[Rfam]
Description:
Rfam assigns this 59-nucleotide RNA sequence from Caenorhabditis elegans to the family "mir-255 microRNA precursor family". NCBI's taxonomy places the organism under Eukaryota, Opisthokonta, Chromadorea, Rhabditida, Caenorhabditis. A reference for the family is Ruby et al. (2006), "Large-scale sequencing reveals 21U-RNAs and additional microRNAs and endogenous siRNAs in C. elegans", Cell.

RNA sequence: GUAAGAAAUCUUUGUAGUUCUCCGUAUUGUGACGUGAAAACUGAAGAGAUUUUUUACAG
Dot-bracket structure: (((((((((((((.(((((.(((((......))).)).))))).)))))))))))))..